[Rfam]
RNA sequence: GGGGCUGACCGGUUUUGACAGUAGGUGUGAAGAUUGGGCUCGCAUGUCAGGUGGAGUAUGUACGCCUGUGAAUAAUUCAUACAAACUAUAAUUGGCGAAUCUAAUUACGCCAUGGCUGCCUAAUUAAUACCUUCAAAGGAUUAAUGUAGGGCGUUAGGGUUGAGCUCAAAAGAGUUCCCCGGCCACAUUCCGCUGCUUUUUGUCUUGUUGGAGCAGUAUAUGGAGUGUCGAUAAGGCAGGACUAGCACCUAUCAUGCUAUUAAAUAGGUGCGAAAAUCAAAUAGCUAAGCACCAGGACAGGUGUGUUGCCCAGCAGUCCGGUGUCGAAAACCCAACAGGUAACUAAACAUGUAGACGGUACGGUGUUUCCCUAUCUGGACGCGAGUUCGAAUCUCGCCAGCUCCACCG
Numbered sequence: 001g002g003g004g005c006u007g008a009c010c011g012g013u014u015u016u017g018a019c020a021g022u023a024g025g026u027g028u029g030a031a032g033a034u035u036g037g038g039c040u041c042g043c044a045u046g047u048c049a050g051g052u053g054g055a056g057u058a059u060g061u062a063c064g065c066c067u068g069u070g071a072a073u074a075a076u077u078c079a080u081a082c083a084a085a086c087u088a089u090a091a092u093u094g095g096c097g098a099a100u101c102u103a104a105u106u107a108c109g110c111c112a113u114g115g116c117u118g119c120c121u122a123a124u125u126a127a128u129a130c131c132u133u134c135a136a137a138g139g140a141u142u143a144a145u146g147u148a149g150g151g152c153g154u155u156a157g158g159g160u161u162g163a164g165c166u167c168a169a170a171a172g173a174g175u176u177c178c179c180c181g182g183c184c185a186c187a188u189u190c191c192g193c194u195g196c197u198u199u200u201u202g203u204c205u206u207g208u209u210g211g212a213g214c215a216g217u218a219u220a221u222g223g224a225g226u227g228u229c230g231a232u233a234a235g236g237c238a239g240g241a242c243u244a245g246c247a248c249c250u251a252u253c254a255u256g257c258u259a260u261u262a263a264a265u266a267g268g269u270g271c272g273a274a275a276a277u278c279a280a281a282u283a284g285c286u287a288a289g290c291a292c293c294a295g296g297a298c299a300g301g302u303g304u305g306u307u308g309c310c311c312a313g314c315a316g317u318c319c320g321g322u323g324u325c326g327a328a329a330a331c332c333c334a335a336c337a338g339g340u341a342a343c344u345a346a347a348c349a350u351g352u353a354g355a356c357g358g359u360a361c362g363g364u365g366u367u368u369c370c371c372u373a374u375c376u377g378g379a380c381g382c383g384a385g386u387u388c389g390a391a392u393c394u395c396g397c398c399a400g401c402u403c404c405a406c407c408g
Base pairs, nucleotide, nucleotide: 001404002403003402004401005400006399007398019377020376021375024372025371027369031366033364034363035362036361038359039358040357043351044350045349046348047347048068049067050066051065052064056082057081058080059079060078062076186227187226188225189224190223191222193216194215195214196213197212198211199210205240206239209236245271246270247269248268249267250266251265252264256285257284258283259282260281289325293321295319296318297317298316300314302312305343306342307341308340309338381397382396383395384394385393
RNA: transfer-messenger RNA
Organism: Anditalea andensis